[Rfam]
RNA: Exoribonuclease-resistant RNA (xrRNA) plant-infecting virus (class 3)
Organism: Enamovirus CLEV
RNA sequence: AAAUUAGCCAGUAAACAAGUUGCAAUAGCUGGAAAUUUAGUCUUGUGA
Numbered sequence: 001a002a003a004u005u006a007g008c009c010a011g012u013a014a015a016c017a018a019g020u021u022g023c024a025a026u027a028g029c030u031g032g033a034a035a036u037u038u039a040g041u042c043u044u045g046u047g048a
Stems, first nucleotide, its partner, number of pairs: 001037002004034001008032002011030001012027002015046005